[Rfam]
Nucleotides: 075
Base pairs, nucleotide, nucleotide: 002074005071007069008068009067010066011065012064013063014062015061016060017059019057020056021055022054025052026051027050029048030047031046032045033044
Number, partner (000 for none) and nucleotide at each position: 001000g002074g003000g004000g005071g006000c007069u008068c009067u010066u011065g012064g013063g014062u015061g016060a017059u018000g019057c020056a021055c022054c023000c024000u025052g026051g027050g028000a029048u030047u031046g032045g033044g034000c035000u036000c037000c038000c039000u040000c041000c042000u043000u044033u045032c046031u047030g048029g049000c050027u051026c052025u053000a054022g055021g056020u057019g058000a059017g060016u061015c062014a063013c064012c065011u066010g067009a068008g069007a070000a071005c072000c073000g074002c075000a
About this RNA
This 75-nucleotide RNA from Pipistrellus kuhlii belongs to the Rfam family "mir-9223 microRNA precursor family". The family has 9 seed sequences and 14,641 matches in Rfam 15.1. Pairs were carried over by alignment from the consensus structure, which was predicted with RNAalifold. It scores 64 bits against the family's covariance model. NCBI's taxonomy places the organism under Eukaryota, Deuterostomia, Euteleostomi, Chiroptera, Pipistrellus.